[Rfam]
RNA sequence: UACUGAUGACCUUCGACUAAAUUCCGACACGUCCUGUGUCGAACGUCGAAGUCAACACAUCCUGUGUA
Numbered sequence: 001u002a003c004u005g006a007u008g009a010c011c012u013u014c015g016a017c018u019a020a021a022u023u024c025c026g027a028c029a030c031g032u033c034c035u036g037u038g039u040c041g042a043a044c045g046u047c048g049a050a051g052u053c054a055a056c057a058c059a060u061c062c063u064g065u066g067u068a
Base pairs, nucleotide, nucleotide: 011051012050013049014048015047016046017045026040027039028038029037030036055067056066057065058064
This 68-nucleotide RNA sequence from Oceanobacillus picturae belongs to the Rfam family "Bacillaceae-1 RNA". The base pairs follow the family's consensus structure, which is taken from published work. Lineage of the source: Bacteria > Bacillota > Bacilli > Bacillaceae > Oceanobacillus.